This 87-nucleotide sequence from Ceratopteris richardii belongs to the Rfam family "Small nucleolar RNA R44/J54/Z268 family".

[Rfam]
RNA sequence: CGUGCACAUGAUGUGAAAAGAUUAGGGACAUCUGUACCCUGUCAGGGUGAUGAUGAUAUGUUAAUAUGGGAAUCUCUUUGAUGCACC
Numbered sequence: 001c002g003u004g005c006a007c008a009u010g011a012u013g014u015g016a017a018a019a020g021a022u023u024a025g026g027g028a029c030a031u032c033u034g035u036a037c038c039c040u041g042u043c044a045g046g047g048u049g050a051u052g053a054u055g056a057u058a059u060g061u062u063a064a065u066a067u068g069g070g071a072a073u074c075u076c077u078u079u080g081a082u083g084c085a086c087c
Stems, first nucleotide, its partner, number of pairs: 002086005

Clan: SNORD74 clan.